[Rfam]
RNA sequence: CGAAUUCUUCGGGGUCGGGUGUAAAUCCCAACCGGCGGUAUAGUCCGCGACCCGUUGCCGCAAUGGCAUCGGCUGAACUGGUGUAAUUCCAGUACCGACAGUAAAGUCUGGAUGAGAGAAGAAAAUA
Numbered sequence: 001c002g003a004a005u006u007c008u009u010c011g012g013g014g015u016c017g018g019g020u021g022u023a024a025a026u027c028c029c030a031a032c033c034g035g036c037g038g039u040a041u042a043g044u045c046c047g048c049g050a051c052c053c054g055u056u057g058c059c060g061c062a063a064u065g066g067c068a069u070c071g072g073c074u075g076a077a078c079u080g081g082u083g084u085a086a087u088u089c090c091a092g093u094a095c096c097g098a099c100a101g102u103a104a105a106g107u108c109u110g111g112a113u114g115a116g117a118g119a120a121g122a123a124a125a126u127a
Stems, first nucleotide, its partner, number of pairs: 005123006017029003031107002033097002035048004043095002052072002077093005099110003
Background:
A member of the RNA family "FMN riboswitch aptamer (RFN element)" from Clostridium sp. D5, 127 nucleotides long. The source organism's lineage runs through Bacteria, Bacillati, Clostridia, Clostridiaceae and Clostridium. About the family: The RFN element is a highly conserved domain that is found frequently in the 5'-untranslated regions of prokaryotic mRNAs that encode for flavin mononucleotide (FMN) biosynthesis and transport proteins.